[Rfam]
Nucleotides: 075
Stems, first nucleotide, its partner, number of pairs: 008018004039060009
Number, partner (000 for none) and nucleotide at each position: 001000a002000g003000g004000g005000g006000g007000u008018g009017c010016c011015u012000u013000u014000c015011a016010g017009g018008c019000a020000u021000c022000c023000u024000c025000u026000c027000c028000u029000a030000a031000a032000a033000c034000u035000u036000u037000u038000c039060g040059g041058c042057c043056g044055g045054u046053c047052g048000u049000u050000u051000u052047c053046g054045a055044u056043c057042g058041g059040c060039c061000u062000u063000u064000u065000u066000u067000u068000u069000c070000g071000c072000c073000c074000g075000g
Rfam assigns this 75-nucleotide sequence from Sphingomonas sp. CFBP 13720 to the family "Makes More Granules Regulator RNA (mmgR)". Rfam classes the family as a small RNA. The pairing is the family consensus, mapped onto this sequence. On this family, see Corbino et al., Genome Biol 2005: "Evidence for a second class of S-adenosylmethionine riboswitches and other regulatory RNA motifs in alpha-proteobacteria".